[Rfam]
RNA sequence: GGCCUCCUGGUGCUUACCACAGGCUGUGUUCUUACACUGACUGUAUAGAAGGAGGAGGCAGAGCAGGCCCUCCCCAUGUACACCUCAGCUCUGGCCUCAUCGUGCCUGGGCUGUAUUGUGAGUGGGGGGACAAGG
Numbered sequence: 001g002g003c004c005u006c007c008u009g010g011u012g013c014u015u016a017c018c019a020c021a022g023g024c025u026g027u028g029u030u031c032u033u034a035c036a037c038u039g040a041c042u043g044u045a046u047a048g049a050a051g052g053a054g055g056a057g058g059c060a061g062a063g064c065a066g067g068c069c070c071u072c073c074c075c076a077u078g079u080a081c082a083c084c085u086c087a088g089c090u091c092u093g094g095c096c097u098c099a100u101c102g103u104g105c106c107u108g109g110g111c112u113g114u115a116u117u118g119u120g121a122g123u124g125g126g127g128g129g130a131c132a133a134g135g
Base pairs, nucleotide, nucleotide: 002059003058004057005056006055007054008053020043021042022041026037027036028035029034072127073126074125075124076123077122086113087112088111090109091108093106094105095104
About this RNA:
Shown here is a 135-nucleotide RNA from Oryctolagus cuniculus, a member of the family "Small nucleolar RNA SNORA51". Rfam's curators write: ACA51 is a member of the H/ACA class of snoRNA that guide the sites of modification of uridines to pseudouridines. Gene Ontology terms of the family: nucleolus and RNA processing. Rfam classes the family as an H/ACA-box small nucleolar RNA. Rfam 15.1 lists 2,121 matches to the family in 210 species. The source organism's lineage runs through Eukaryota, Vertebrata, Dipnotetrapodomorpha, Lagomorpha and Oryctolagus.